[Rfam]
RNA sequence: UGUUAGAGACAGCACAAAGACAGGGAACAGGCUGAGCAUGGAUGGAACUAUCGACAGAAUUGAGGAGACAACUGUCAUGGUUCCACUCAUGCACUGCCUCUUCCCUGGCUCUGUUCCAAUUACUCCUU
Numbered sequence: 001u002g003u004u005a006g007a008g009a010c011a012g013c014a015c016a017a018a019g020a021c022a023g024g025g026a027a028c029a030g031g032c033u034g035a036g037c038a039u040g041g042a043u044g045g046a047a048c049u050a051u052c053g054a055c056a057g058a059a060u061u062g063a064g065g066a067g068a069c070a071a072c073u074g075u076c077a078u079g080g081u082u083c084c085a086c087u088c089a090u091g092c093a094c095u096g097c098c099u100c101u102u103c104c105c106u107g108g109c110u111c112u113g114u115u116c117c118a119a120u121u122a123c124u125c126c127u128u
Stems, first nucleotide, its partner, number of pairs: 018110002021107007029099004034094001036092006045083002
Shown here is a 128-nucleotide RNA from Cicer arietinum, a member of the family "MIR408 microRNA precursor family".
The family's consensus secondary structure was predicted with WAR.
Its family is annotated with miRNA-mediated post-transcriptional gene silencing and RISC complex in the Gene Ontology.